[Rfam]
RNA sequence: UCGCGAUAAUAGCAAACCUGCCGCAAAGGCAGCGACGCAAAACUACAGGGCCUAAGGGUGAAUACCUAUGGCAGCCAGUUACCGAA
Numbered sequence: 001u002c003g004c005g006a007u008a009a010u011a012g013c014a015a016a017c018c019u020g021c022c023g024c025a026a027a028g029g030c031a032g033c034g035a036c037g038c039a040a041a042a043c044u045a046c047a048g049g050g051c052c053u054a055a056g057g058g059u060g061a062a063u064a065c066c067u068a069u070g071g072c073a074g075c076c077a078g079u080u081a082c083c084g085a086a
Stems, first nucleotide, its partner, number of pairs: 012038002018032005041080004048076002050072003057066003

Source information:
Rfam assigns this 86-nucleotide RNA from Paenibacillus ferrarius to the family "c-di-GMP-I riboswitch aptamer". Pairs were carried over by alignment from the consensus structure, which is taken from published work. Rfam describes the family as follows. GEMM was predicted in a large-scale screen for bacterial structured RNA regulatory elements. A reference for the family is Weinberg et al. (2007), "Identification of 22 candidate structured RNAs in bacteria using the CMfinder comparative genomics pipeline", Nucleic Acids Res. It scores 70 bits against the family's covariance model.